A member of the RNA family "mir-160 microRNA precursor family" from Zingiber officinale, 88 nucleotides long.
The organism belongs to Zingiber, within Eukaryota.

RNA sequence: AUGUGCCUGGCUCCCUGUAUGCCACACACAUAGAUCAAUCCAUCUAGUGAUUGUCUAAUCUGGGUGGCAUGCAAGGAGUCAAGCAUGC
Numbered sequence: 001a002u003g004u005g006c007c008u009g010g011c012u013c014c015c016u017g018u019a020u021g022c023c024a025c026a027c028a029c030a031u032a033g034a035u036c037a038a039u040c041c042a043u044c045u046a047g048u049g050a051u052u053g054u055c056u057a058a059u060c061u062g063g064g065u066g067g068c069a070u071g072c073a074a075g076g077a078g079u080c081a082a083g084c085a086u087g088c
Stems, first nucleotide, its partner, number of pairs: 002087005008081007016073009027062002